[Rfam]
Annotation: A member of the RNA family "T-box leader" from Candidatus Kurthia intestinigallinarum, 245 nucleotides long. Lineage of the source: Bacteria > Bacillati > Bacillota > Bacilli > Kurthia. The family has 48 seed sequences and 19,395 matches in Rfam 15.1.
RNA sequence: CAAAUACCUAUGACCGAGCAAGUAGCUAAUUUCAAGACAUUUUCCAGAGAGAGAAAAUCAUGGCUGAAAGUUUUCUUAUGAUGUGAAUUAGUGAAUAACACUCGUGAGGUUUUUCUUCGAAACGCAGCAGGCUUAUUAGGGGAAAACGGAAUCGGCCGUUAUCCGAUUAGAGAGGGUUAUUACAAAGUAAUGACCAACUAGGGUGGAACCGCGGAAGCUGAAUUUAAUGAGCUGUCGUCCCUUGC
Numbered sequence: 001c002a003a004a005u006a007c008c009u010a011u012g013a014c015c016g017a018g019c020a021a022g023u024a025g026c027u028a029a030u031u032u033c034a035a036g037a038c039a040u041u042u043u044c045c046a047g048a049g050a051g052a053g054a055a056a057a058u059c060a061u062g063g064c065u066g067a068a069a070g071u072u073u074u075c076u077u078a079u080g081a082u083g084u085g086a087a088u089u090a091g092u093g094a095a096u097a098a099c100a101c102u103c104g105u106g107a108g109g110u111u112u113u114u115c116u117u118c119g120a121a122a123c124g125c126a127g128c129a130g131g132c133u134u135a136u137u138a139g140g141g142g143a144a145a146a147c148g149g150a151a152u153c154g155g156c157c158g159u160u161a162u163c164c165g166a167u168u169a170g171a172g173a174g175g176g177u178u179a180u181u182a183c184a185a186a187g188u189a190a191u192g193a194c195c196a197a198c199u200a201g202g203g204u205g206g207a208a209c210c211g212c213g214g215a216a217g218c219u220g221a222a223u224u225u226a227a228u229g230a231g232c233u234g235u236c237g238u239c240c241c242u243u244g245c
Base pairs, nucleotide, nucleotide: 007109008108015104016103017102018101025092026091027090028089029088030087038080039079040078053075054074055073056072057071058070112145113144114143115142116141117140118139147158148157149156175195176194177193178192179191180190181189200242201241202240203239211238212237213236214235